[Rfam]
RNA sequence: AGACCCCUACCUUUACUCGGAUCGUCCGGCACGUUCCUGCCGGUGAAGGGACAUAUCA
Numbered sequence: 001a002g003a004c005c006c007c008u009a010c011c012u013u014u015a016c017u018c019g020g021a022u023c024g025u026c027c028g029g030c031a032c033g034u035u036c037c038u039g040c041c042g043g044u045g046a047a048g049g050g051a052c053a054u055a056u057c058a
Stems, first nucleotide, its partner, number of pairs: 010049006026043006
Background
This 58-nucleotide sequence from Streptomyces malaysiensis belongs to the Rfam family "msiK RNA". The family's RNA type in Rfam is cis-regulatory element. Rfam 15.1 lists 1,374 matches to the family in 1,364 species. NCBI's taxonomy places the organism under Bacteria, Bacillati, Actinomycetes, Kitasatosporales, Streptomyces. Pairs were carried over by alignment from the consensus structure, which is taken from published work.